[Rfam]
RNA sequence: GCCGAAGUGGCGGAAUUGGUAGACGCACAGGACUUAAAAUCCUGUGUCCAGAAUUGGACGUGCGGGUUCGAGUCCCGCCUUCGGUA
Numbered sequence: 001g002c003c004g005a006a007g008u009g010g011c012g013g014a015a016u017u018g019g020u021a022g023a024c025g026c027a028c029a030g031g032a033c034u035u036a037a038a039a040u041c042c043u044g045u046g047u048c049c050a051g052a053a054u055u056g057g058a059c060g061u062g063c064g065g066g067u068u069c070g071a072g073u074c075c076c077g078c079c080u081u082c083g084g085u086a
Stems, first nucleotide, its partner, number of pairs: 001085007010026003028044005062078005
A member of the RNA family "tRNA" from Chloroherpeton thalassium, 86 nucleotides long. The source organism's lineage runs through Bacteria, Pseudomonadati, Chlorobiales, Chloroherpeton and Chloroherpeton thalassium. The family's consensus secondary structure is taken from published work. By type it is a transfer RNA.